The record is an 81-nucleotide RNA sequence from Myripristis murdjan, which matches "mir-26 microRNA precursor family" in Rfam. On this family, see Lagos-Quintana et al., Science 2001: "Identification of novel genes coding for small expressed RNAs". The source organism's lineage runs through Eukaryota, Craniata, Vertebrata, Eurypterygia and Myripristis. Rfam 15.1 lists 2,251 matches to the family in 645 species. Its family is annotated with RISC complex and miRNA-mediated post-transcriptional gene silencing in the Gene Ontology. The base pairs follow the family's consensus structure, which was predicted with RNAalifold.

RNA sequence: CUGUCCCCCGGUGCAAGUAAUCAAGCAUAGGCCAGGUCAGACACAGAAAGCCUAUCCUGGAUUACUUGAACCAGGUUCCAG
Numbered sequence: 001c002u003g004u005c006c007c008c009c010g011g012u013g014c015a016a017g018u019a020a021u022c023a024a025g026c027a028u029a030g031g032c033c034a035g036g037u038c039a040g041a042c043a044c045a046g047a048a049a050g051c052c053u054a055u056c057c058u059g060g061a062u063u064a065c066u067u068g069a070a071c072c073a074g075g076u077u078c079c080a081g
Stems, first nucleotide, its partner, number of pairs: 002080002007075002010072003014068009024058002027055006